[Rfam]
RNA sequence: CGCGACGCCCCCGAGCUACAUCCCGUGGGGCUCCAGUCCGUGCGUGUAGCACCAUGGGAUUCAGCUCAGGGCCGCCGCA
Numbered sequence: 001c002g003c004g005a006c007g008c009c010c011c012c013g014a015g016c017u018a019c020a021u022c023c024c025g026u027g028g029g030g031c032u033c034c035a036g037u038c039c040g041u042g043c044g045u046g047u048a049g050c051a052c053c054a055u056g057g058g059a060u061u062c063a064g065c066u067c068a069g070g071g072c073c074g075c076c077g078c079a
Base pairs, nucleotide, nucleotide: 002078003077004076007073010071011070012069013067014066016064017063021059022058023057024056025055026054027053028052031049032048034046035045
RNA: mir-998 microRNA precursor family
Organism: Brenthis ino